[Rfam]
A member of the RNA family "MIR1882 microRNA precursor family" from Oryza sativa, 130 nucleotides long. It is one of the family's seed sequences. Pairs were carried over by alignment from the consensus structure, which was predicted with RNAalifold. Rfam links the family to the GO terms RISC complex and miRNA-mediated post-transcriptional gene silencing. The organism belongs to Oryza, within Eukaryota. The family has 8 seed sequences and 107 matches in Rfam 15.1.
RNA sequence: UAUCCUAGAUUGCUUUCAAGGUCAUUUCUUUAGGGAACCCCAUUCCCAUAAAUUCAGUAUCCAAAGCUGGUUGCUGUAUCUAUGGGAAUAAGGGUUCCUAACGAAAUGAUCUUGGAUGCAAUCUUGGAUU
Numbered sequence: 001u002a003u004c005c006u007a008g009a010u011u012g013c014u015u016u017c018a019a020g021g022u023c024a025u026u027u028c029u030u031u032a033g034g035g036a037a038c039c040c041c042a043u044u045c046c047c048a049u050a051a052a053u054u055c056a057g058u059a060u061c062c063a064a065a066g067c068u069g070g071u072u073g074c075u076g077u078a079u080c081u082a083u084g085g086g087a088a089u090a091a092g093g094g095u096u097c098c099u100a101a102c103g104a105a106a107u108g109a110u111c112u113u114g115g116a117u118g119c120a121a122u123c124u125u126g127g128a129u130u
Stems, first nucleotide, its partner, number of pairs: 003128003007124007015116014030101003034098007042089009052079002055076005061070003